[Rfam]
RNA sequence: CCAGGACAAAGCUCAACCUGUUGUGAGGCAGGGACGGAAAGCCGCGGAUCUUUAAAAAAAGAAAGCCGGGUUACCUUG
Numbered sequence: 001c002c003a004g005g006a007c008a009a010a011g012c013u014c015a016a017c018c019u020g021u022u023g024u025g026a027g028g029c030a031g032g033g034a035c036g037g038a039a040a041g042c043c044g045c046g047g048a049u050c051u052u053u054a055a056a057a058a059a060a061g062a063a064a065g066c067c068g069g070g071u072u073a074c075c076u077u078g
Stems, first nucleotide, its partner, number of pairs: 012037002017032006040072004045068003049062005
A member of the RNA family "c-di-GMP-I riboswitch aptamer" from Candidatus Vecturithrix granuli, 78 nucleotides long. It scores 53 bits against the family's covariance model.